[Rfam]
RNA sequence: UUUGGCUUUCAGUGGGAGCUCCUCAUCUUCCUGAGAUUGCCUGACAAACUUCCCCAGGCAAUCUCAGGAAGAUGAGGAGCUCCCACUGAAAGCCAAAGCUG
Numbered sequence: 001u002u003u004g005g006c007u008u009u010c011a012g013u014g015g016g017a018g019c020u021c022c023u024c025a026u027c028u029u030c031c032u033g034a035g036a037u038u039g040c041c042u043g044a045c046a047a048a049c050u051u052c053c054c055c056a057g058g059c060a061a062u063c064u065c066a067g068g069a070a071g072a073u074g075a076g077g078a079g080c081u082c083c084c085a086c087u088g089a090a091a092g093c094c095a096a097a098g099c100u101g
Stems, first nucleotide, its partner, number of pairs: 006092007014084002017081027
Dot-bracket structure: .....(((((((.((.(((((((((((((((((((((((((((...........))))))))))))))))))))))))))).)).))))))).........

The record is a 101-nucleotide sequence from Oxylabes madagascariensis, which matches "mraW RNA" in Rfam. Rfam classes the family as a cis-regulatory element. It scores 50 bits against the family's covariance model.